[Rfam]
RNA sequence: CCUCGUUCCGAGGGGUGCUCCGGAAGGAGCUGAGACACCGUCGGCCGACGCGGCGCCGCCAGCAACGGCACGCCGCCCGGCACCGCGGAAACCCUUUGAACCUGAUCCGGGUCAUGCCGGCGAAGGGACAGGGACCAUUCCCACUC
Numbered sequence: 001c002c003u004c005g006u007u008c009c010g011a012g013g014g015g016u017g018c019u020c021c022g023g024a025a026g027g028a029g030c031u032g033a034g035a036c037a038c039c040g041u042c043g044g045c046c047g048a049c050g051c052g053g054c055g056c057c058g059c060c061a062g063c064a065a066c067g068g069c070a071c072g073c074c075g076c077c078c079g080g081c082a083c084c085g086c087g088g089a090a091a092c093c094c095u096u097u098g099a100a101c102c103u104g105a106u107c108c109g110g111g112u113c114a115u116g117c118c119g120g121c122g123a124a125g126g127g128a129c130a131g132g133g134a135c136c137a138u139u140c141c142c143a144c145u146c
Base pairs, nucleotide, nucleotide: 006134007133008132009131011095012094013093014092016089017030018029019028020027021026101126102125103124107120108119109118110117